[Rfam]
RNA sequence: CGGGAAAGCCAACUCCUAGCCUUUACGCCUAAGUGGCUUUUGCGAGCGAUAGGGUGUUCUGGCCGUGGCGACAGCCACCAGGGUGCAGGAUAGAAAUGUCCGCAUCUCCCGUAUUUGGAAAGGUGUUUAACGGUGCCACAG
Numbered sequence: 001c002g003g004g005a006a007a008g009c010c011a012a013c014u015c016c017u018a019g020c021c022u023u024u025a026c027g028c029c030u031a032a033g034u035g036g037c038u039u040u041u042g043c044g045a046g047c048g049a050u051a052g053g054g055u056g057u058u059c060u061g062g063c064c065g066u067g068g069c070g071a072c073a074g075c076c077a078c079c080a081g082g083g084u085g086c087a088g089g090a091u092a093g094a095a096a097u098g099u100c101c102g103c104a105u106c107u108c109c110c111g112u113a114u115u116u117g118g119a120a121a122g123g124u125g126u127u128u129a130a131c132g133g134u135g136c137c138a139c140a141g
Stems, first nucleotide, its partner, number of pairs: 004134001011127003015123002019063003025057005033050002036047004065078005081107006088101005108118002

Description:
The record is a 141-nucleotide RNA sequence from Acerihabitans arboris, which matches "Molybdenum/Tungsten riboswitch aptamer (Moco RNA motif)" in Rfam. The source organism's lineage runs through Bacteria, Pseudomonadati, Enterobacterales, Pectobacteriaceae and Acerihabitans.